Background:
A member of the RNA family "SAM riboswitch aptamer (S box leader)" from Rhodohalobacter mucosus, 134 nucleotides long. Rfam describes the family as follows. The SAM riboswitch is found upstream of a number of genes which code for proteins involved in methionine or cysteine biosynthesis in Gram-positive bacteria. The SAM riboswitch acts at the level of transcription termination control. The predicted structure consists of a complex stem-loop region followed by a single stem loop terminator region. Rfam 15.1 lists 9,625 matches to the family in 4,158 species.
RNA sequence: CUCUUAUCCAGAAAGGUGGAGGGACAGGCCCUGUGAAACCUUAGCAACCGCCCCGAAUGCGUUCGGGGGUCAGGUGCUAAAUCCUGCCCGCUUUGAUAAAACCAUACGUUUAUCAAAGCAGGGAAAGAUGAGAG
Numbered sequence: 001c002u003c004u005u006a007u008c009c010a011g012a013a014a015g016g017u018g019g020a021g022g023g024a025c026a027g028g029c030c031c032u033g034u035g036a037a038a039c040c041u042u043a044g045c046a047a048c049c050g051c052c053c054c055g056a057a058u059g060c061g062u063u064c065g066g067g068g069g070u071c072a073g074g075u076g077c078u079a080a081a082u083c084c085u086g087c088c089c090g091c092u093u094u095g096a097u098a099a100a101a102c103c104a105u106a107c108g109u110u111u112a113u114c115a116a117a118g119c120a121g122g123g124a125a126a127g128a129u130g131a132g133a134g
Stems, first nucleotide, its partner, number of pairs: 001134008013042005021031003025086004043078004048074002050070004082126001087123003